[Rfam]
RNA sequence: GCCGAGCUCAGUCACGAGAGCUUGUGGACCCGUGUGGGGGCGCACAAUGUGGGCGGACUGUUGAGGGCGUGGAAUGGGUGGAGGGAGGAUGCGUGGCACGGUGUGCGGCGCGCCCUGUUCCAAGUAGAGAGUAGUUGCAAGGCCCUCACUCGAAGGGGCGAGGGCAGUCUUGUAUCCUAAAGUGGAGGGGACCGCGUGAGGCUGGUUUCACAGAGCAACGAAUACCUCCCGCUCCCUACGGUGGAAGGAUUACGCGCUGCUUGUCCCUCUUCCCACAAUCCUCCCCUCCCGCUCAUUACUCGGACGCCCACCUUU
Number, nucleotide and partner (000 for none) at each position: 001g041002c040003c039004g023005a022006g021007c020008u019009c018010a000011g000012u000013c000014a000015c000016g000017a000018g009019a008020g007021c006022u005023u004024g000025u000026g000027g000028a000029c038030c037031c036032g000033u000034g000035u000036g031037g030038g029039g003040g002041c001042g000043c000044a000045c000046a314047a313048u000049g311050u310051g309052g308053g307054c306055g305056g000057a000058c302059u000060g000061u000062u298063g297064a000065g294066g293067g292068c291069g290070u000071g289072g288073a287074a000075u000076g284077g000078g283079u000080g281081g280082a000083g274084g273085g272086a271087g270088g269089a268090u000091g000092c000093g266094u000095g265096g264097c263098a000099c000100g261101g000102u000103g000104u000105g260106c259107g258108g257109c256110g255111c254112g253113c000114c248115c247116u000117g000118u246119u245120c244121c243122a242123a000124g239125u238126a237127g236128a000129g234130a233131g232132u231133a000134g176135u000136u174137g173138c172139a171140a170141g169142g165143c164144c163145c162146u161147c160148a000149c158150u157151c156152g000153a000154a000155g000156g151157g150158g149159c000160g147161a146162g145163g144164g143165c142166a000167g000168u000169c141170u140171u139172g138173u137174a136175u000176c134177c182178u000179a000180a000181a000182g177183u000184g229185g228186a227187g226188g225189g000190g000191a000192c000193c000194g000195c220196g219197u218198g000199a000200g000201g000202c213203u212204g211205g000206u000207u000208u000209c000210a000211c204212a203213g202214a000215g000216c000217a000218a197219c196220g195221a000222a000223u000224a000225c188226c187227u186228c185229c184230c000231g132232c131233u130234c129235c000236c127237u126238a125239c124240g000241g000242u122243g121244g120245a119246a118247g115248g114249a000250u000251u000252a000253c112254g111255c110256g109257c108258u107259g106260c105261u100262u000263g097264u096265c095266c093267c000268u089269c088270u087271u086272c085273c084274c083275a000276c000277a000278a000279u000280c081281c080282u000283c078284c076285c000286c000287u073288c072289c071290c069291g068292c067293u066294c065295a000296u000297u063298a062299c000300u000301c000302g058303g000304a000305c055306g054307c053308c052309c051310a050311c049312c000313u047314u046315u000
Overview: The record is a 315-nucleotide sequence from Taxus chinensis, which matches "Plant signal recognition particle RNA" in Rfam. The base pairs follow the family's consensus structure, which is taken from published work. Clan: SRP clan. It is annotated as a non-coding RNA gene.